Shown here is a 172-nucleotide RNA sequence from Faecalibaculum rodentium, a member of the family "Group II catalytic intron D1-D4-3". The source organism's lineage runs through Bacteria, Bacillati, Erysipelotrichia, Erysipelotrichaceae and Faecalibaculum. The base pairs follow the family's consensus structure. A search with the family's covariance model found it, with a score of 105 bits.
RNA sequence: AAAGCCGCGAGGCUGGGAUGGAAGAAGCGGUGUAGCCAAUCUGACGAGCCUACGAACAGAAACCUGAUACAAGGCCAAAUGGCGGGUGAGGUUGCAACACAAACCAAAGCCCAAAAGGCAAACGUAAAACCAAGACGGUAAAUCAGGAGGUUGUGCAGAGAAAGAUGUGUGC
Numbered sequence: 001a002a003a004g005c006c007g008c009g010a011g012g013c014u015g016g017g018a019u020g021g022a023a024g025a026a027g028c029g030g031u032g033u034a035g036c037c038a039a040u041c042u043g044a045c046g047a048g049c050c051u052a053c054g055a056a057c058a059g060a061a062a063c064c065u066g067a068u069a070c071a072a073g074g075c076c077a078a079a080u081g082g083c084g085g086g087u088g089a090g091g092u093u094g095c096a097a098c099a100c101a102a103a104c105c106a107a108a109g110c111c112c113a114a115a116a117g118g119c120a121a122a123c124g125u126a127a128a129a130c131c132a133a134g135a136c137g138g139u140a141a142a143u144c145a146g147g148a149g150g151u152u153g154u155g156c157a158g159a160g161a162a163a164g165a166u167g168u169g170u171g172c
Base pairs, nucleotide, nucleotide: 003014004013005012006011027172028171029170036164040159041158042157043156045155046154047152048151049150050149051148063147064146065145066144067143068142074139075138076137080133082131084112085111086110087109090105091104092103093102